[Rfam]
RNA sequence: CCCCUGCAUCAUGAUAAGGCCGAACAUGGUGCAUGAAAGGGGAGG
Dot-bracket structure: ((((.((((((((...........))))))))......))))...